[Rfam]
RNA: RAGATH-18 RNA
Organism: Paenibacillus popilliae
RNA sequence: CCUGUGGAGUGUCAUGCCAAAUGCGAGUAGCUCAGGCAAAAGCAGACACGUAGAAGCAGGAA
Numbered sequence: 001c002c003u004g005u006g007g008a009g010u011g012u013c014a015u016g017c018c019a020a021a022u023g024c025g026a027g028u029a030g031c032u033c034a035g036g037c038a039a040a041a042g043c044a045g046a047c048a049c050g051u052a053g054a055a056g057c058a059g060g061a062a
Base pairs, nucleotide, nucleotide: 001060002059003058004057005056009049010048011047012046013045022044023043024042030037031036